[Rfam]
RNA sequence: UGAUGUUCUCGGGGCGGGGUGCAAUUCCCCACCGGCGGUGAGAGCCCGCGACCCCCGAGCCGCUGGCGCGGCGAGGGGCUGACCCGGUGGAAUCCCGGGGCCGACGGUAACAGUCCGGAUGGGAGAGAACAGGG
Numbered sequence: 001u002g003a004u005g006u007u008c009u010c011g012g013g014g015c016g017g018g019g020u021g022c023a024a025u026u027c028c029c030c031a032c033c034g035g036c037g038g039u040g041a042g043a044g045c046c047c048g049c050g051a052c053c054c055c056c057g058a059g060c061c062g063c064u065g066g067c068g069c070g071g072c073g074a075g076g077g078g079c080u081g082a083c084c085c086g087g088u089g090g091a092a093u094c095c096c097g098g099g100g101c102c103g104a105c106g107g108u109a110a111c112a113g114u115c116c117g118g119a120u121g122g123g124a125g126a127g128a129a130c131a132g133g134g
Stems, first nucleotide, its partner, number of pairs: 004131007017029003031114002033103002035049004044101002053078004083099005105117003

The record is a 134-nucleotide sequence from Tepidiforma thermophila, which matches "FMN riboswitch aptamer (RFN element)" in Rfam. On this family, see Vitreschak et al., Nucleic Acids Res 2002: "Regulation of riboflavin biosynthesis and transport genes in bacteria by transcriptional and translational attenuation". About the family: The RFN element is a highly conserved domain that is found frequently in the 5'-untranslated regions of prokaryotic mRNAs that encode for flavin mononucleotide (FMN) biosynthesis and transport proteins.